[Rfam]
RNA sequence: CUUUCUAAAGGGCAAAGCUGCUGAAAAGCAGUGACGCAAAGUCACAGGUCUAAGGCGAUUUUUUCGCUAUGACGGCUGGUCUUCCGUA
Number, nucleotide and partner (000 for none) at each position: 001c000002u000003u000004u000005c000006u000007a000008a000009a000010g000011g000012g037013c036014a000015a000016a000017g032018c031019u030020g029021c028022u027023g000024a000025a000026a000027a022028g021029c020030a019031g018032u017033g000034a000035c000036g013037c012038a000039a000040a082041g081042u000043c079044a000045c078046a077047g076048g073049u072050c071051u000052a000053a000054g000055g067056c066057g065058a064059u000060u000061u000062u000063u000064u058065c057066g056067c055068u000069a000070u000071g050072a049073c048074g000075g000076c047077u046078g045079g043080u000081c041082u040083u000084c000085c000086g000087u000088a000
RNA: c-di-GMP-I riboswitch aptamer
Organism: Sporolactobacillus shoreae